[Rfam]
RNA sequence: UUGUGAAUGUUCUCACUGUUCUGAUUUUUGUAAUAAUUAGAACAGGUUAAACAUUUGCUAUAUUAAGUCCAUACAUGUGUCCCCAGACCUAAUUCUUUCCCUGGUUCUGAUUUUAUAAAUGCUGGUGAUAAAC
Number, nucleotide and partner (000 for none) at each position: 001u000002u000003g058004u057005g056006a000007a000008u000009g000010u000011u000012c000013u000014c000015a000016c045017u044018g043019u042020u041021c040022u039023g038024a037025u036026u035027u000028u000029u000030g000031u000032a000033a000034u000035a026036a025037u024038u023039a022040g021041a020042a019043c018044a017045g016046g000047u000048u000049a000050a000051a000052c000053a000054u000055u000056u005057g004058c003059u000060a000061u000062a000063u000064u000065a000066a000067g000068u000069c125070c124071a123072u000073a000074c121075a000076u000077g000078u000079g000080u000081c000082c000083c000084c109085a108086g107087a106088c000089c104090u103091a102092a000093u000094u000095c000096u000097u000098u000099c000100c000101c000102u091103g090104g089105u000106u087107c086108u085109g084110a000111u000112u000113u000114u000115a000116u000117a000118a000119a000120u000121g074122c000123u071124g070125g069126u000127g000128a000129u000130a000131a000132a000133c000
The record is a 133-nucleotide sequence from Sciurus vulgaris, which matches "Small nucleolar RNA SNORA72" in Rfam. Its family is annotated with nucleolus and RNA processing in the Gene Ontology. The family's RNA type in Rfam is H/ACA-box small nucleolar RNA. The family's consensus secondary structure was predicted with PFOLD. A reference for the family is Ganot et al. (1997), "The family of box ACA small nucleolar RNAs is defined by an evolutionarily conserved secondary structure and ubiquitous sequence elements essential for RNA accumulation", Genes Dev.